[Rfam]
RNA sequence: GCAGAAUUAUUUUUGCAAUAUGUUCCUGAAUAUGUAGUAUAAGCGUAUUGGGAUCAUUUUGCAUCCAUAGUUUUGUAU
Numbered sequence: 001g002c003a004g005a006a007u008u009a010u011u012u013u014u015g016c017a018a019u020a021u022g023u024u025c026c027u028g029a030a031u032a033u034g035u036a037g038u039a040u041a042a043g044c045g046u047a048u049u050g051g052g053a054u055c056a057u058u059u060u061g062c063a064u065c066c067a068u069a070g071u072u073u074u075g076u077a078u
Base pairs, nucleotide, nucleotide: 004073005072006071007070008069009068010067014063015062016061017060018059020057021056022055024053025052026051027050029049030048031047032046033045034044
Record summary:
The record is a 78-nucleotide sequence from Macaca mulatta, which matches "mir-450 microRNA precursor family" in Rfam. Rfam links the family to the GO terms RISC complex and miRNA-mediated post-transcriptional gene silencing. The family's consensus secondary structure was predicted with RNAalifold. It is one of the family's seed sequences. Taxonomically the source falls in Macaca (Eukaryota, Opisthokonta, Eumetazoa, Cercopithecinae).